[Rfam]
RNA sequence: AAUAAGCACUAGGGGUGUUUCUUUUGAAACUGAGAUAGGCUUUACCUGAUCCCUUUGAACCUGUAAGUCGAUACUUGCGUAGGAAAGUGCGAAAAUCUGGAC
Numbered sequence: 001a002a003u004a005a006g007c008a009c010u011a012g013g014g015g016u017g018u019u020u021c022u023u024u025u026g027a028a029a030c031u032g033a034g035a036u037a038g039g040c041u042u043u044a045c046c047u048g049a050u051c052c053c054u055u056u057g058a059a060c061c062u063g064u065a066a067g068u069c070g071a072u073a074c075u076u077g078c079g080u081a082g083g084a085a086a087g088u089g090c091g092a093a094a095a096u097c098u099g100g101a102c
Stems, first nucleotide, its partner, number of pairs: 006090005011054004016048001017030005037047003060083004064077004

Record summary
A member of the RNA family "TPP riboswitch aptamer (THI element)" from Companilactobacillus versmoldensis, 102 nucleotides long. Lineage of the source: Bacteria > Bacillati > Lactobacillales > Companilactobacillus > Companilactobacillus versmoldensis.